[Rfam]
Prion pseudoknot: a 40-nucleotide sequence.
RNA sequence: CGGUGGUGGAGGCUGGGGACAGCCCCACGGUGGAGGCUGG
Number, nucleotide and partner (000 for none) at each position: 001c030002g000003g028004u027005g026006g025007u000008g000009g000010a000011g000012g000013c000014u000015g000016g000017g000018g000019a000020c000021a000022g000023c000024c000025c006026c005027a004028c003029g000030g001031u000032g000033g000034a000035g000036g000037c000038u000039g000040g000

The base pairs follow the family's consensus structure, which is taken from published work.
For this family Rfam cites "Pseudoknots in prion protein mRNAs confirmed by comparative sequence analysis and pattern searching" (Barrette et al., Nucleic Acids Res, 2001).